[Rfam]
RNA sequence: UAACGAUAAGGGCAAAGCUGCGGAAACGCAGUGGCUGCAAAGCUACAGGGGCUAAGGCGACAUGCUAUGCCAGCCAGCUGCCGUA
Dot-bracket structure: ...........((...((((((....))))))....))..((((...(((((....(((...)))...)))..))))))......
RNA: c-di-GMP-I riboswitch aptamer